This 86-nucleotide RNA sequence from Solanum tuberosum belongs to the Rfam family "MIR8024 microRNA precursor family". The match comes from Rfam's covariance-model search (85 bits).
RNA sequence: UUAAAGAAUUUGAAGACUUCAUCUUGCAGACUUAAAGAAUUUGAAGACUUCAGCUUGUAUACUUGGAGGAUUUGAAAACUUCAAUU
Number, nucleotide and partner (000 for none) at each position: 001u084002u083003a000004a081005a080006g079007a000008a000009u076010u075011u074012g073013a072014a071015g000016a000017c068018u067019u066020c065021a064022u000023c000024u000025u059026g058027c057028a056029g000030a000031c000032u053033u052034a000035a050036a049037g048038a000039a000040u000041u000042u000043g000044a000045a000046g000047a000048c037049u036050u035051c000052a033053g032054c000055u000056u028057g027058u026059a025060u000061a000062c000063u000064u021065g020066g019067a018068g017069g000070a000071u014072u013073u012074g011075a010076a009077a000078a000079c006080u005081u004082c000083a002084a001085u000086u000